Annotation: Rfam assigns this 80-nucleotide sequence from Atlanticothrix silvestris to the family "Photosynthesis regulatory RNA1". Rfam links the family to the GO terms regulation of translation and regulation of photosynthesis. Rfam 15.1 lists 92 matches to the family in 57 species. Formerly known as Syr1 discovered in Synechocystis sp PCC 6803, is a regulatory factor controlling photosynthetic functions. PsrR1 interacts with the ribosome binding regions of several photosynthesis-related mRNAs. In particular, psaL mRNA is processed by RNase E only in the presence of PsrR1.
RNA sequence: UAAAUUUUUCCCUCGGUAUCGCUUAAUCUCAUUGUCAUUCGUACUUCUCCCUUAAACCUCGGCUGCCAACCGAGGUUUUU
Numbered sequence: 001u002a003a004a005u006u007u008u009u010c011c012c013u014c015g016g017u018a019u020c021g022c023u024u025a026a027u028c029u030c031a032u033u034g035u036c037a038u039u040c041g042u043a044c045u046u047c048u049c050c051c052u053u054a055a056a057c058c059u060c061g062g063c064u065g066c067c068a069a070c071c072g073a074g075g076u077u078u079u080u
Stems, first nucleotide, its partner, number of pairs: 056076007

About this RNA:
On this family, see Georg et al., Plant Cell 2014: "The small regulatory RNA SyR1/PsrR1 controls photosynthetic functions in cyanobacteria".